[Rfam]
RNA sequence: AAUAUUUGUAGAUUUCGGUAUCGGUAUCACUCAUCGUCAUUUGGACUUCUCCCCUUUACCUCGGUUAGUUUCGCCGGGGUUUUU
Numbered sequence: 001a002a003u004a005u006u007u008g009u010a011g012a013u014u015u016c017g018g019u020a021u022c023g024g025u026a027u028c029a030c031u032c033a034u035c036g037u038c039a040u041u042u043g044g045a046c047u048u049c050u051c052c053c054c055u056u057u058a059c060c061u062c063g064g065u066u067a068g069u070u071u072c073g074c075c076g077g078g079g080u081u082u083u084u
Stems, first nucleotide, its partner, number of pairs: 058080008